RNA: Group II catalytic intron D1-D4-7
Organism: delta proteobacterium MLMS-1
RNA sequence: CCUACUGUAUCGUCAGUAGUUUCCUACCUCGGCAUGCAUUGCUGGUAACGGCUUUGUGUGAAGCCCGAGCGACAAUGAAGCCCUCAGUCACUCGACUGGGAGAGAAAAUCGCGAGAGGAUCUCAACUCUGGAAGCAUCGAUCUGGAUGGGAGC
Numbered sequence: 001c002c003u004a005c006u007g008u009a010u011c012g013u014c015a016g017u018a019g020u021u022u023c024c025u026a027c028c029u030c031g032g033c034a035u036g037c038a039u040u041g042c043u044g045g046u047a048a049c050g051g052c053u054u055u056g057u058g059u060g061a062a063g064c065c066c067g068a069g070c071g072a073c074a075a076u077g078a079a080g081c082c083c084u085c086a087g088u089c090a091c092u093c094g095a096c097u098g099g100g101a102g103a104g105a106a107a108a109u110c111g112c113g114a115g116a117g118g119a120u121c122u123c124a125a126c127u128c129u130g131g132a133a134g135c136a137u138c139g140a141u142c143u144g145g146a147u148g149g150g151a152g153c
Stems, first nucleotide, its partner, number of pairs: 002019006028069005033060006041052004084099006100123004109116002127146006